Trans-activating crRNA: a 91-nucleotide sequence from Listeria kieliensis. Rfam's curators write: RNA-guided Streptococcus pyogenes Cas9 (SpCas9) is a sequence-specific DNA endonuclease, the Trans-activating CRISPR RNA form an hybrid with the crRNA (crRNA/tracrRNA). The RNA hybrid acts as a guide for the endonuclease Cas9. Lineage of the source: Bacteria > Bacillota > Bacilli > Listeriaceae > Listeria. The family's RNA type in Rfam is CRISPR RNA. On this family, see Jinek et al., Science 2012: "A Programmable Dual-RNA-Guided DNA Endonuclease in Adaptive Bacterial Immunity". It scores 78 bits against the family's covariance model.

[Rfam]
RNA sequence: UGUUGGAAUUAUUCAGAAUAACAUAGCGAGUUAAAAUAAGGCUUUGUCCGUAACCAACUUUUAAAGUAGCGCUGUUCUCGGCGCUUUUUUC
Numbered sequence: 001u002g003u004u005g006g007a008a009u010u011a012u013u014c015a016g017a018a019u020a021a022c023a024u025a026g027c028g029a030g031u032u033a034a035a036a037u038a039a040g041g042c043u044u045u046g047u048c049c050g051u052a053a054c055c056a057a058c059u060u061u062u063a064a065a066g067u068a069g070c071g072c073u074g075u076u077c078u079c080g081g082c083g084c085u086u087u088u089u090u091c
Stems, first nucleotide, its partner, number of pairs: 001036001003034003009026004040049002057067001059065002068085007
Dot-bracket structure: (.(((...((((..........)))).....))).)...((......)).......(.((...)).)(((((((....)))))))......